The record is a 46-nucleotide sequence, which matches "ssNA-helicase RNA" in Rfam. It is one of the family's seed sequences. By type it is a small RNA.
[Rfam]
RNA sequence: UAGCCUAAGCCAGUAUUACCUUAGGCUACUUCUGUAGCGUUUAGCA
Number, nucleotide and partner (000 for none) at each position: 001u028002a027003g026004c025005c024006u023007a022008a021009g020010c000011c000012a000013g000014u000015a000016u000017u000018a000019c000020c009021u008022u007023a006024g005025g004026c003027u002028a001029c000030u000031u000032c000033u000034g000035u000036a000037g000038c000039g000040u000041u000042u000043a000044g000045c000046a000